[Rfam]
Record summary: A member of the RNA family "mir-927 microRNA precursor family" from Plutella xylostella, 85 nucleotides long. The match comes from Rfam's covariance-model search (79 bits). Its family is annotated with RISC complex and miRNA-mediated post-transcriptional gene silencing in the Gene Ontology. A reference for the family is Berezikov et al. (2010), "Evolutionary flux of canonical microRNAs and mirtrons in Drosophila", Nat Genet. The organism belongs to Plutella, within Eukaryota. Pairs were carried over by alignment from the consensus structure, which was predicted with RNAalifold.
Nucleotides: 085
Base pairs, nucleotide, nucleotide: 010079011078014076015075016074017073018072019071020070021069023067024066025065028062029061030060031059032058033057034056036054037053
Number, partner (000 for none) and nucleotide at each position: 001000a002000a003000g004000a005000a006000g007000c008000u009000g010079u011078c012000c013000g014076g015075u016074u017073u018072u019071a020070g021069a022000a023067u024066u025065c026000c027000u028062a029061c030060g031059c032058u033057u034056u035000a036054c037053c038000g039000u040000u041000g042000c043000c044000a045000a046000g047000u048000a049000u050000g051000u052000g053037g054036g055000c056034a057033a058032a059031g060030c061029g062028u063000u064000u065025g066024g067023a068000u069021u070020c071019u072018a073017a074016a075015a076014c077000u078011g079010g080000a081000c082000c083000c084000u085000u